This 170-nucleotide RNA sequence from Zea mays belongs to the Rfam family "small nucleolar RNA snoR143". NCBI's taxonomy places the organism under Eukaryota, Magnoliopsida, Poales, Andropogoneae, Zea. Rfam links the family to the GO terms RNA processing and nucleolus.

RNA sequence: UUGCACCUGUGAUUUAUGUUCUGCCUUCAGUCCUUGUUGGUGGGAUAUUGUACUGGUGCAUAAAGGAAAUGUUGCUCCUUCAGGCAGCGUCGGCCAGACAACCGAUGAGACAGAUCCACAGAUAAAUGACUAAUAUCAUGUUGUUUGUCUACUAAAUCUGUCUCACAUUU
Numbered sequence: 001u002u003g004c005a006c007c008u009g010u011g012a013u014u015u016a017u018g019u020u021c022u023g024c025c026u027u028c029a030g031u032c033c034u035u036g037u038u039g040g041u042g043g044g045a046u047a048u049u050g051u052a053c054u055g056g057u058g059c060a061u062a063a064a065g066g067a068a069a070u071g072u073u074g075c076u077c078c079u080u081c082a083g084g085c086a087g088c089g090u091c092g093g094c095c096a097g098a099c100a101a102c103c104g105a106u107g108a109g110a111c112a113g114a115u116c117c118a119c120a121g122a123u124a125a126a127u128g129a130c131u132a133a134u135a136u137c138a139u140g141u142u143g144u145u146u147g148u149c150u151a152c153u154a155a156a157u158c159u160g161u162c163u164c165a166c167a168u169u170u
Base pairs, nucleotide, nucleotide: 002060003059004058005057006056008052009051010050016048017047018046019045020044021043025042027040028039029038107164108163109162110161111160112159113158114157125146126145129142

The family's consensus secondary structure was predicted with RNAalifold. By type it is an H/ACA-box small nucleolar RNA.